[Rfam]
RNA sequence: UGUUUAGUGUAAGUAUAUCCCAUGCAAUAUUUGGGGUAUAUUUAUACUAAAU
Numbered sequence: 001u002g003u004u005u006a007g008u009g010u011a012a013g014u015a016u017a018u019c020c021c022a023u024g025c026a027a028u029a030u031u032u033g034g035g036g037u038a039u040a041u042u043u044a045u046a047c048u049a050a051a052u
Base pairs, nucleotide, nucleotide: 006048007047008046009045010044011043012042014040015039016038018036019035020034021033022031
Dot-bracket structure: .....(((((((.(((.(((((........).)))).))).)))))))....